[Rfam]
RNA sequence: AAUUUAUUUAUGACGUAACUCAGUGAAGAAACUAAGAGCAUAGUUGCUGAGGUUAUAGCGGAAAAUGAGUUGAAUUAUUCGGGAUACUGAAUAUGUAGGCUUUUGAUAAAGUGGCGACAUUAAUCAACGAGUGUAUACAUUCACAAGAUUAAGUUAUAAGCAUAUUUGUAAUGAUAGAAGAUUAAAGCACUUUAAUUGGAUUAGGCAGAUUCAAUAGACGUUCCUGUGGAAAAUAACCUUAAAAGACUUGAGGGUGAUAGCUCAAGAAACUAUAAGGAAUAAUCAAAAUCUGUUAGGUGGUUGAUGUGAACUGAAUAAGUCACUAUAAUUGAUUGUUAAAGUUACAACGGCAAAAAUCCACCAGAUUAAAUUAUGAAUACCAAAUUCUGAAUGCUUUGUUGUUGUUAUUGGUGAAAUUCCAGUAUAUCUUAACUAUCAUUUGAUAGAGUUUAAGAAGUAUAAAGGUAGCUCCUUUAUGCUCAGACUUAGGCUGAUAUUAGCUAAAUAAAUCAGUUAUUACAAAUGUAGAGCGAAAGCUCAUGUCCAUUUUAUACAUGUG
Numbered sequence: 001a002a003u004u005u006a007u008u009u010a011u012g013a014c015g016u017a018a019c020u021c022a023g024u025g026a027a028g029a030a031a032c033u034a035a036g037a038g039c040a041u042a043g044u045u046g047c048u049g050a051g052g053u054u055a056u057a058g059c060g061g062a063a064a065a066u067g068a069g070u071u072g073a074a075u076u077a078u079u080c081g082g083g084a085u086a087c088u089g090a091a092u093a094u095g096u097a098g099g100c101u102u103u104u105g106a107u108a109a110a111g112u113g114g115c116g117a118c119a120u121u122a123a124u125c126a127a128c129g130a131g132u133g134u135a136u137a138c139a140u141u142c143a144c145a146a147g148a149u150u151a152a153g154u155u156a157u158a159a160g161c162a163u164a165u166u167u168g169u170a171a172u173g174a175u176a177g178a179a180g181a182u183u184a185a186a187g188c189a190c191u192u193u194a195a196u197u198g199g200a201u202u203a204g205g206c207a208g209a210u211u212c213a214a215u216a217g218a219c220g221u222u223c224c225u226g227u228g229g230a231a232a233a234u235a236a237c238c239u240u241a242a243a244a245g246a247c248u249u250g251a252g253g254g255u256g257a258u259a260g261c262u263c264a265a266g267a268a269a270c271u272a273u274a275a276g277g278a279a280u281a282a283u284c285a286a287a288a289u290c291u292g293u294u295a296g297g298u299g300g301u302u303g304a305u306g307u308g309a310a311c312u313g314a315a316u317a318a319g320u321c322a323c324u325a326u327a328a329u330u331g332a333u334u335g336u337u338a339a340a341g342u343u344a345c346a347a348c349g350g351c352a353a354a355a356a357u358c359c360a361c362c363a364g365a366u367u368a369a370a371u372u373a374u375g376a377a378u379a380c381c382a383a384a385u386u387c388u389g390a391a392u393g394c395u396u397u398g399u400u401g402u403u404g405u406u407a408u409u410g411g412u413g414a415a416a417u418u419c420c421a422g423u424a425u426a427u428c429u430u431a432a433c434u435a436u437c438a439u440u441u442g443a444u445a446g447a448g449u450u451u452a453a454g455a456a457g458u459a460u461a462a463a464g465g466u467a468g469c470u471c472c473u474u475u476a477u478g479c480u481c482a483g484a485c486u487u488a489g490g491c492u493g494a495u496a497u498u499a500g501c502u503a504a505a506u507a508a509a510u511c512a513g514u515u516a517u518u519a520c521a522a523a524u525g526u527a528g529a530g531c532g533a534a535a536g537c538u539c540a541u542g543u544c545c546a547u548u549u550u551a552u553a554c555a556u557g558u559g
Stems, first nucleotide, its partner, number of pairs: 001556001004553001010547003019051005030045005054158006068101004073096001076093007103127005110121004131144003135140001166523002171518001183509001187502001190341004199334006205293006221231004237277005247266006255285004296362005306323004345404001350399005386484004409422001411420001425496003428446001448492001450490002453487002457480001459477007528539004
RNA: ROOL RNA